[Rfam]
RNA sequence: GCGUCGUGGACUGUGCGUGCGAAGGAGGCCAGAAGUGAAACGCUGACCUGACGAACAGAGAGUGGAUACCGGGCGACACGCUGGGGUGAAACGGCCCGGGAAGCCAAAGCCCGGCACUUGCUGACAUGGAGUGGCCCGACAGGCAUAAGCGGACGGCCAGGU
Numbered sequence: 001g002c003g004u005c006g007u008g009g010a011c012u013g014u015g016c017g018u019g020c021g022a023a024g025g026a027g028g029c030c031a032g033a034a035g036u037g038a039a040a041c042g043c044u045g046a047c048c049u050g051a052c053g054a055a056c057a058g059a060g061a062g063u064g065g066a067u068a069c070c071g072g073g074c075g076a077c078a079c080g081c082u083g084g085g086g087u088g089a090a091a092c093g094g095c096c097c098g099g100g101a102a103g104c105c106a107a108a109g110c111c112c113g114g115c116a117c118u119u120g121c122u123g124a125c126a127u128g129g130a131g132u133g134g135c136c137c138g139a140c141a142g143g144c145a146u147a148a149g150c151g152g153a154c155g156g157c158c159a160g161g162u
Base pairs, nucleotide, nucleotide: 001016002015003014004013006011028162029161030160032158041151042150043149044147045146047143048142049141050140063138064137065136067134073132074131077128078127080125082123083122084112085111086110087109092103
Dot-bracket structure: ((((.(....).))))...........(((.(........(((((.((((............(((.(.....((..((.(.((((((....(..........).....)))).........)).).))..)).).))).))))..)).)))......).)))